A member of the RNA family "Glycine riboswitch aptamer" from Gordonia bronchialis, 106 nucleotides long. Lineage of the source: Bacteria > Bacillati > Actinomycetes > Gordoniaceae > Gordonia bronchialis.
[Rfam]
RNA sequence: CGCUACACCUCGGGAGAGCGUCACCGGGCCGCAAGGCCCCGGGUGGCCGCCGAAGGAGCAAUACCUCCUCGUCAAACUCUCAGGCACCCAGGACCGUGGUGUUGAC
Numbered sequence: 001c002g003c004u005a006c007a008c009c010u011c012g013g014g015a016g017a018g019c020g021u022c023a024c025c026g027g028g029c030c031g032c033a034a035g036g037c038c039c040c041g042g043g044u045g046g047c048c049g050c051c052g053a054a055g056g057a058g059c060a061a062u063a064c065c066u067c068c069u070c071g072u073c074a075a076a077c078u079c080u081c082a083g084g085c086a087c088c089c090a091g092g093a094c095c096g097u098g099g100u101g102u103u104g105a106c
Stems, first nucleotide, its partner, number of pairs: 006101004011096003020047006049085003052081002056079003